[Rfam]
RNA sequence: AAAUAACUUCAGGGCAGGGCGUAAUUCCCUACCGGCGGUAUAGUCCGCGAGCUUAGGCAUGAUUGGGUGUAAUUCCCAAACCGACAGUUAAAGUCUGGAUGAGAGAAGUAUGAU
Numbered sequence: 001a002a003a004u005a006a007c008u009u010c011a012g013g014g015c016a017g018g019g020c021g022u023a024a025u026u027c028c029c030u031a032c033c034g035g036c037g038g039u040a041u042a043g044u045c046c047g048c049g050a051g052c053u054u055a056g057g058c059a060u061g062a063u064u065g066g067g068u069g070u071a072a073u074u075c076c077c078a079a080a081c082c083g084a085c086a087g088u089u090a091a092a093g094u095c096u097g098g099a100u101g102a103g104a105g106a107a108g109u110a111u112g113a114u
Stems, first nucleotide, its partner, number of pairs: 006109005017029003031094002033083002035048004043081002053057001063079005085097003
RNA: FMN riboswitch aptamer (RFN element)
Organism: Hujiaoplasma nucleasis